[Rfam]
RNA: Bacterial large signal recognition particle RNA
RNA sequence: UCGUGCUAAGCGGGGAGGUAGCGGUGCCCUACACUCGCAAUCCGCUGUAGCGAGGCCGAAUUCCCACCCAAGGUGGUGUGGCUUCAAGGUCUGCCUUAUGUGACCGGUGUUGACACUCAGGUCCUGCGCAACGGGAACCAGUGAAUCCUGUCAGGUCCGGAAGGAAGCAGCAGUAAGCUGUUCCUCCCGUGUGCCGCGGGAGUGCCUGGGUUGAGCCGUAAUCAUAAGUAACGCUUGGGGCCACGCCAUCGACGGUGGGUGCACGG
Number, nucleotide and partner (000 for none) at each position: 001u266002c265003g264004u263005g262006c261007u000008a000009a000010g056011c055012g030013g029014g028015g027016a000017g025018g000019u023020a000021g000022c000023g019024g000025u017026g000027c015028c014029c013030u012031a000032c000033a000034c054035u053036c052037g051038c050039a000040a000041u000042c000043c000044g000045c000046u000047g000048u000049a000050g038051c037052g036053a035054g034055g011056c010057c000058g000059a000060a000061u000062u000063c259064c258065c257066a256067c255068c254069c000070a000071a000072g250073g249074u248075g247076g246077u000078g000079u243080g242081g241082c240083u239084u238085c237086a236087a235088g234089g000090u000091c000092u233093g232094c000095c228096u227097u226098a225099u224100g223101u000102g000103a219104c218105c000106g217107g216108u215109g000110u000111u000112g000113a000114c000115a211116c210117u209118c208119a207120g206121g205122u204123c200124c199125u198126g197127c196128g195129c191130a190131a000132c189133g188134g187135g186136a185137a182138c000139c180140a179141g178142u177143g000144a000145a000146u000147c000148c173149u172150g171151u170152c000153a000154g000155g000156u165157c164158c163159g000160g000161a000162a000163g158164g157165a156166a000167g000168c000169a000170g151171c150172a149173g148174u000175a000176a000177g142178c141179u140180g139181u000182u137183c000184c000185u136186c135187c134188c133189g132190u130191g129192u000193g000194c000195c128196g127197c126198g125199g124200g123201a000202g000203u000204g122205c121206c120207u119208g118209g117210g116211u115212u000213g000214a000215g108216c107217c106218g104219u103220a000221a000222u000223c100224a099225u098226a097227a096228g095229u000230a000231a000232c093233g092234c088235u087236u086237g085238g084239g083240g082241c081242c080243a079244c000245g000246c076247c075248a074249u073250c072251g000252a000253c000254g068255g067256u066257g065258g064259g063260u000261g006262c005263a004264c003265g002266g001